[Rfam]
RNA sequence: UGGCGCCCAACGUGGGGCUCCAGCACGGGGGAUCCAGUGAAGGACGCCGUUCAAGUGGCCGGCAGAAAGGAAAAGAAAAGAGGGAACGACAGUGGGAACCUGCUGCGUCUGCACCCCUCGGGUAUGCACCCCUCGGGUAAGUGAACGGCGAUUAUGGGUCAAGCAUUGAGCCAAGAUAAGAUGUUCGUUGAAGGACUAGGAAAGGCUAUAAAGGCACGAGGAGUAAAGGUGAAAAUUAAGCAUUUGUGUCAGUAUUUUGAUUAUAUUAAAGAAGUUUGUCCUU
Numbered sequence: 001u002g003g004c005g006c007c008c009a010a011c012g013u014g015g016g017g018c019u020c021c022a023g024c025a026c027g028g029g030g031g032a033u034c035c036a037g038u039g040a041a042g043g044a045c046g047c048c049g050u051u052c053a054a055g056u057g058g059c060c061g062g063c064a065g066a067a068a069g070g071a072a073a074a075g076a077a078a079a080g081a082g083g084g085a086a087c088g089a090c091a092g093u094g095g096g097a098a099c100c101u102g103c104u105g106c107g108u109c110u111g112c113a114c115c116c117c118u119c120g121g122g123u124a125u126g127c128a129c130c131c132c133u134c135g136g137g138u139a140a141g142u143g144a145a146c147g148g149c150g151a152u153u154a155u156g157g158g159u160c161a162a163g164c165a166u167u168g169a170g171c172c173a174a175g176a177u178a179a180g181a182u183g184u185u186c187g188u189u190g191a192a193g194g195a196c197u198a199g200g201a202a203a204g205g206c207u208a209u210a211a212a213g214g215c216a217c218g219a220g221g222a223g224u225a226a227a228g229g230u231g232a233a234a235a236u237u238a239a240g241c242a243u244u245u246g247u248g249u250c251a252g253u254a255u256u257u258u259g260a261u262u263a264u265a266u267u268a269a270a271g272a273a274g275u276u277u278g279u280c281c282u283u
Stems, first nucleotide, its partner, number of pairs: 006031003012026003039047001080119003083115002087111002092106004125161002129158003167210002170206003217259005223253002227245005268283002271280002